RNA: U4 spliceosomal RNA
Organism: Volvox carteri
RNA sequence: AUCUUUGCGCUUGGGGCAAUGUCGCAGCCUAUGAGAUCUAAUCGAGGCGCGACUAUUGCUGGUUGAAAACUUAUUCCUUCCCCGUCGGUCGUGUUCUUCGGGACCUUCCGCAAUAUUUGGCGGUCUUCGGACC
Numbered sequence: 001a002u003c004u005u006u007g008c009g010c011u012u013g014g015g016g017c018a019a020u021g022u023c024g025c026a027g028c029c030u031a032u033g034a035g036a037u038c039u040a041a042u043c044g045a046g047g048c049g050c051g052a053c054u055a056u057u058g059c060u061g062g063u064u065g066a067a068a069a070c071u072u073a074u075u076c077c078u079u080c081c082c083c084g085u086c087g088g089u090c091g092u093g094u095u096c097u098u099c100g101g102g103a104c105c106u107u108c109c110g111c112a113a114u115a116u117u118u119g120g121c122g123g124u125c126u127u128c129g130g131a132c133c
Stems, first nucleotide, its partner, number of pairs: 021053005027048003035043003084111001086110003091105001093104004122133004